[Rfam]
Nucleotides: 094
Base pairs, nucleotide, nucleotide: 001094002093003092004091005090010082011081012080013079014078016077017076018075019074020072021071022070026055027054029053030052031051032050033049034048035047039088040087041086043084059069060068061067062066
Number, partner (000 for none) and nucleotide at each position: 001094g002093a003092c004091a005090g006000a007000g008000u009000a010082g011081a012080u013079g014078c015000c016077u017076g018075c019074g020072c021071g022070u023000u024000a025000a026055g027054u028000g029053u030052u031051a032050g033049u034048g035047g036000a037000u038000g039088g040087g041086a042000a043084g044000u045000u046000g047035c048034c049033a050032c051031u052030a053029a054027a055026c056000g057000a058000a059069a060068g061067g062066g063000u064000u065000a066062u067061c068060c069059u070022g071021c072020g073000a074019u075018g076017c077016a078014g079013c080012a081011u082010c083000g084043c085000a086041u087040c088039c089000g090005c091004u092003g093002u094001c